[Rfam]
Rfam assigns this 79-nucleotide sequence to the family "HTH-XRE RNA". Rfam's curators put it in the seed alignment.

RNA sequence: GAUCAGCAAAUGCUGGGGCAUAUGUUGGAUAUGCGACGGAACUCCCGGCAAAACAGCUUGCAAAGGUGAUUCCCUUUUC
Numbered sequence: 001g002a003u004c005a006g007c008a009a010a011u012g013c014u015g016g017g018g019c020a021u022a023u024g025u026u027g028g029a030u031a032u033g034c035g036a037c038g039g040a041a042c043u044c045c046c047g048g049c050a051a052a053a054c055a056g057c058u059u060g061c062a063a064a065g066g067u068g069a070u071u072c073c074c075u076u077u078u079c
Stems, first nucleotide, its partner, number of pairs: 011050007018034006